[Rfam]
RNA sequence: AGGUCUGUUCGAAGGCCCUCCACUCACAUUCUAUGAGUGGGCGUGGUUCAAAAGCCGGCCGAGA
Numbered sequence: 001a002g003g004u005c006u007g008u009u010c011g012a013a014g015g016c017c018c019u020c021c022a023c024u025c026a027c028a029u030u031c032u033a034u035g036a037g038u039g040g041g042c043g044u045g046g047u048u049c050a051a052a053a054g055c056c057g058g059c060c061g062a063g064a
Stems, first nucleotide, its partner, number of pairs: 002060004007055003017046002020040006
Background: Shown here is a 64-nucleotide RNA sequence from Trypanosoma rangeli, a member of the family "Trypanosomatid snoRNA TB11Cs5H3". Gene Ontology terms of the family: nucleolus and RNA processing. Pairs were carried over by alignment from the consensus structure, which was predicted with WAR. Rfam classes the family as an H/ACA-box small nucleolar RNA. It scores 52 bits against the family's covariance model.